The record is a 379-nucleotide RNA from Pasteurellaceae bacterium RH1A, which matches "Bacterial RNase P class A" in Rfam. The family's consensus secondary structure is taken from published work. It scores 329 bits against the family's covariance model. The family's RNA type in Rfam is ribozyme.
RNA sequence: UGAGUUGGUUAGACAAUCGCUGGUUUAUUGAAGCCCUUAACCGCCUUCGGGCGACCUAGUGGGACAAGUAAACGAGAGGAAAGUCCGAGCUACAUAGGGCAGAGUGCCAGAUAACGUCUGGGAGGCGUGAGCCUACGACCAGUGCAACAGAGAGCAGACCGCCAGCUUCGGCUGGUAAGGGUGAAAGGGUGCGGUAAGAGCGCACCGUGCGGCUGGUAACAGUUCGCAGCAGGGUAAACUCCACUCGUAGCAAGACCAAAUAGGAACUCAAUGGGUGGCCCGCCCAGAGUUCGGGUAGGUUGCUUGAACAGCAUAGCGAUGUGUUGUCUAGAUGAAUGAUUGUCCACGACAGAACUCGGCUUAUCGACCAACUCACCUC
Numbered sequence: 001u002g003a004g005u006u007g008g009u010u011a012g013a014c015a016a017u018c019g020c021u022g023g024u025u026u027a028u029u030g031a032a033g034c035c036c037u038u039a040a041c042c043g044c045c046u047u048c049g050g051g052c053g054a055c056c057u058a059g060u061g062g063g064a065c066a067a068g069u070a071a072a073c074g075a076g077a078g079g080a081a082a083g084u085c086c087g088a089g090c091u092a093c094a095u096a097g098g099g100c101a102g103a104g105u106g107c108c109a110g111a112u113a114a115c116g117u118c119u120g121g122g123a124g125g126c127g128u129g130a131g132c133c134u135a136c137g138a139c140c141a142g143u144g145c146a147a148c149a150g151a152g153a154g155c156a157g158a159c160c161g162c163c164a165g166c167u168u169c170g171g172c173u174g175g176u177a178a179g180g181g182u183g184a185a186a187g188g189g190u191g192c193g194g195u196a197a198g199a200g201c202g203c204a205c206c207g208u209g210c211g212g213c214u215g216g217u218a219a220c221a222g223u224u225c226g227c228a229g230c231a232g233g234g235u236a237a238a239c240u241c242c243a244c245u246c247g248u249a250g251c252a253a254g255a256c257c258a259a260a261u262a263g264g265a266a267c268u269c270a271a272u273g274g275g276u277g278g279c280c281c282g283c284c285c286a287g288a289g290u291u292c293g294g295g296u297a298g299g300u301u302g303c304u305u306g307a308a309c310a311g312c313a314u315a316g317c318g319a320u321g322u323g324u325u326g327u328c329u330a331g332a333u334g335a336a337u338g339a340u341u342g343u344c345c346a347c348g349a350c351a352g353a354a355c356u357c358g359g360c361u362u363a364u365c366g367a368c369c370a371a372c373u374c375a376c377c378u379c
Base pairs, nucleotide, nucleotide: 001375002374003373004372005371006370007369008368009367010366011364012344013343014342015341016340017339018338020076021075023073024072025071026070027069028068081362082361083360085359086358087357088356089355090250091249092248093247097281098280099279100278102246103245104244105243106242107121108120109119110118111117122136123134124133125132126131137241138240142239143238144235145234159180160179161176162175163174164173165172166171188206189205190204191203192202193201207230208228209227210226211225212224213222214221215220254301255300256299257298264292265291266290267289268288269287272286273285274284275283276282308327309326310325311324312323313322314321315320